About this RNA
Shown here is a 70-nucleotide sequence from Loxodonta africana, a member of the family "Small nucleolar RNA SNORD30". Gene Ontology terms of the family: RNA processing and nucleolus. Pairs were carried over by alignment from the consensus structure. On this family, see Tycowski et al., Nature 1996: "A mammalian gene with introns instead of exons generating stable RNA products". The family's RNA type in Rfam is C/D-box small nucleolar RNA.
RNA sequence: CUAAAUGAUGACUUACAUGGAAUCUCGUUCGGCUGAUAACUUGCUGUUGAGACUCGGAAAUCUGAUUUUU
Number, nucleotide and partner (000 for none) at each position: 001c000002u000003a000004a000005a000006u000007g000008a000009u000010g000011a000012c000013u000014u000015a000016c000017a000018u000019g000020g000021a000022a000023u052024c051025u050026c049027g048028u000029u000030c046031g045032g044033c043034u000035g000036a000037u000038a000039a000040c000041u000042u000043g033044c032045u031046g030047u000048u027049g026050a025051g024052a023053c000054u000055c000056g000057g000058a000059a000060a000061u000062c000063u000064g000065a000066u000067u000068u000069u000070u000